[Rfam]
RNA sequence: CCAACGGCUCUUUUCAGAGCCACCACAUGUAUUAAAAGAGGUUCUU
Numbered sequence: 001c002c003a004a005c006g007g008c009u010c011u012u013u014u015c016a017g018a019g020c021c022a023c024c025a026c027a028u029g030u031a032u033u034a035a036a037a038g039a040g041g042u043u044c045u046u
Stems, first nucleotide, its partner, number of pairs: 006021006
Dot-bracket structure: .....((((((....)))))).........................
RNA: Histone 3' UTR stem-loop